[Rfam]
RNA sequence: UAACAAGUUCAAGGCCAUAACAGAAAUGCUCAUAGCAUGGCCCUGUCAGAUUCCAAUGAAUCUGUGAACUCUGCU
Numbered sequence: 001u002a003a004c005a006a007g008u009u010c011a012a013g014g015c016c017a018u019a020a021c022a023g024a025a026a027u028g029c030u031c032a033u034a035g036c037a038u039g040g041c042c043c044u045g046u047c048a049g050a051u052u053c054c055a056a057u058g059a060a061u062c063u064g065u066g067a068a069c070u071c072u073g074c075u
Stems, first nucleotide, its partner, number of pairs: 013042004019075001021073004026038003047064007
The family of this 75-nucleotide RNA from Alligator sinensis is "Mammalian CPEB3 ribozyme".
Its family is annotated with RNA nuclease activity in the Gene Ontology.
Taxonomically the source falls in Alligator (Eukaryota, Bilateria, Teleostomi, Archosauria).
The family's consensus secondary structure is taken from published work.